[Rfam]
RNA sequence: CUCUGCAGAGUGACAGCCUCCUCUGAAACCUCCACGGGGAGGGGGCUUGAUGGGGUGCAGAG
Numbered sequence: 001c002u003c004u005g006c007a008g009a010g011u012g013a014c015a016g017c018c019u020c021c022u023c024u025g026a027a028a029c030c031u032c033c034a035c036g037g038g039g040a041g042g043g044g045g046c047u048u049g050a051u052g053g054g055g056u057g058c059a060g061a062g
Stems, first nucleotide, its partner, number of pairs: 001062005015047010029037002
The family of this 62-nucleotide sequence from Bombycilla garrulus is "Selenocysteine insertion sequence 1". Rfam 15.1 lists 3,793 matches to the family in 721 species. Rfam classes the family as a cis-regulatory element. For this family Rfam cites "A novel RNA structural motif in the selenocysteine insertion element of eukaryotic selenoprotein mRNAs" (Walczak et al., RNA, 1996). The base pairs follow the family's consensus structure, which is taken from published work. It scores 36 bits against the family's covariance model.